[Rfam]
RNA: mir-44 microRNA precursor family
RNA sequence: GACGUGCCGAUCUGGAUGUGCUCGUUGGUCAUACAAAAUGUGCGAAACUUGAUUAUGACUAGAGACACAUUCAGCUUGGCGCCGAU
Numbered sequence: 001g002a003c004g005u006g007c008c009g010a011u012c013u014g015g016a017u018g019u020g021c022u023c024g025u026u027g028g029u030c031a032u033a034c035a036a037a038a039u040g041u042g043c044g045a046a047a048c049u050u051g052a053u054u055a056u057g058a059c060u061a062g063a064g065a066c067a068c069a070u071u072c073a074g075c076u077u078g079g080c081g082c083c084g085a086u
Base pairs, nucleotide, nucleotide: 005081006080007079008078009077012074013073014072015071016070017069018068019067020066022065023064027060028059029058030057031056032055033054